The family of this 85-nucleotide sequence from Paraburkholderia sediminicola is "Pseudomonas sRNA P9". By type it is a non-coding RNA gene. NCBI's taxonomy places the organism under Bacteria, Pseudomonadati, Betaproteobacteria, Burkholderiales, Paraburkholderia. The family's consensus secondary structure was predicted with RNAalifold. On this family, see Livny et al., Nucleic Acids Res 2006: "Identification of 17 Pseudomonas aeruginosa sRNAs and prediction of sRNA-encoding genes in 10 diverse pathogens using the bioinformatic tool sRNAPredict2". Rfam describes the family as follows. This small RNA (sRNA) was computationally identified in the genome of the opportunistic pathogen Pseudomonas aeruginosa and its expression verified by northern blot analysis. P9 appears to be conserved in several Pseudomonas species in addition to Bordetella spp. In both Pseudomonas and Bordetella spp P9 appears to be located upstream of a predicted threonine dehydratase gene. P9 has a predicted Rho independent terminator at the 3' end but the function of P9 is unknown. This sRNA also appears to be present in the Betaproteobacteria (Burkholderia and Ralstonia species).
RNA sequence: UCGAUUAUUAGCGCCGCGACAGUCUCGGCGGGAUAGCUAUUGGGUUGACCAUAUGCAAUCACAACCCGCCCAGAAGGCGGGUUUU
Numbered sequence: 001u002c003g004a005u006u007a008u009u010a011g012c013g014c015c016g017c018g019a020c021a022g023u024c025u026c027g028g029c030g031g032g033a034u035a036g037c038u039a040u041u042g043g044g045u046u047g048a049c050c051a052u053a054u055g056c057a058a059u060c061a062c063a064a065c066c067c068g069c070c071c072a073g074a075a076g077g078c079g080g081g082u083u084u085u
Stems, first nucleotide, its partner, number of pairs: 012030005063083008